[Rfam]
Nucleotides: 279
Base pairs, nucleotide, nucleotide: 005135006134008132009131010130011129012128013127014126015125016124017123020044021043022042027037028036029035048055049054063085064084065083066082067081070077071076087118088117089115090114091113092111093110098105099104138277145267146266147265149263150262154243155242156241157240158239159238160237161236162235163234164233165231167199168198169197170196174191175190176189177188178187179186180185203228205226206225208224211222212221245255246254247253
Number, partner (000 for none) and nucleotide at each position: 001000g002000a003000g004000u005135u006134a007000u008132c009131c010130u011129u012128a013127u014126a015125u016124a017123u018000a019000a020044g021043u022042a023000u024000u025000u026000a027037g028036g029035u030000a031000u032000a033000a034000a035029a036028c037027c038000c039000c040000u041000a042022u043021a044020u045000a046000u047000a048055a049054u050000a051000a052000a053000a054049g055048u056000a057000a058000a059000u060000a061000u062000a063085a064084g065083u066082a067081a068000g069000a070077g071076c072000u073000u074000u075000a076071g077070c078000g079000u080000a081067u082066u083065a084064u085063u086000a087118a088117c089115u090114a091113a092111u093110c094000c095000u096000a097000a098105u099104a100000u101000u102000c103000u104099u105098a106000g107000a108000u109000a110093g111092a112000u113091u114090u115089a116000a117088g118087u119000a120000a121000g122000a123017g124016u125015a126014u127013a128012u129011a130010a131009g132008g133000c134006u135005a136000g137000a138277c139000c140000u141000a142000a143000a144000a145267g146266a147265a148000a149263g150262u151000a152000a153000a154243c155242u156241a157240u158239a159238c160237c161236u162235a163234u164233a165231u166000a167199g168198g169197g170196u171000a172000a173000a174191g175190c176189u177188a178187g179186a180185g181000a182000a183000a184000a185180c186179u187178c188177u189176a190175g191174u192000a193000a194000a195000g196170g197169c198168u199167u200000a201000u202000a203228g204000c205226g206225g207000u208224u209000c210000u211222a212221a213000u214000a215000u216000a217000u218000a219000a220000a221212u222211u223000a224208a225206u226205u227000a228203u229000u230000a231165a232000a233164u234163a235162u236161a237160g238159g239158u240157a241156u242155a243154g244000g245255g246254g247253u248000a249000a250000a251000a252000g253247a254246c255245u256000a257000a258000u259000u260000a261000a262150a263149c264000c265147u266146u267145c268000u269000a270000g271000u272000a273000g274000c275000u276000a277138g278000u279000u
Background: The family of this 279-nucleotide part of an RNA from Epichloe typhina is "Eukaryotic large subunit ribosomal RNA". Pairs were carried over by alignment from the consensus structure, which is taken from published work. Lineage of the source: Eukaryota > Opisthokonta > Dikarya > saccharomyceta > Epichloe typhina. The sequence is in the family's curated seed alignment. Gene Ontology terms of the family: structural constituent of ribosome and ribosome.